A member of the RNA family "SAM/SAH riboswitch aptamer" from Rhodovulum sp. P5, 51 nucleotides long. The family's consensus secondary structure is taken from published work. The match comes from Rfam's covariance-model search (53 bits). Lineage of the source: Bacteria > Pseudomonadati > Pseudomonadota > Paracoccaceae > Rhodovulum.

RNA sequence: GAACCACCACAACGGCUUCCUGGCGUGGCGGGGAUAUAUCAUAACGGAGCA
Numbered sequence: 001g002a003a004c005c006a007c008c009a010c011a012a013c014g015g016c017u018u019c020c021u022g023g024c025g026u027g028g029c030g031g032g033g034a035u036a037u038a039u040c041a042u043a044a045c046g047g048a049g050c051a
Base pairs, nucleotide, nucleotide: 004032005031007028008027009026010025013022014021015050016049017048019047020046